[Rfam]
RNA sequence: CGCUGUUCUCAGGGCGGGGCGUAAUUCCCCACCGGCGGUAUGUGGUAACACGAGCCCGCGAGCGCCUUCCGGUGGAAGGGUCAAGCAGAUCAGGUGCGAUGCCUGAGCCGACAGUGAUAGUCUGGAUGAAAGAGAACGCGG
Dot-bracket structure: ...(((((((......(((.......))).[[((((((...............[[))))..((.....................))...(((((.......)))))]])).(((.....]]))).......)))))))...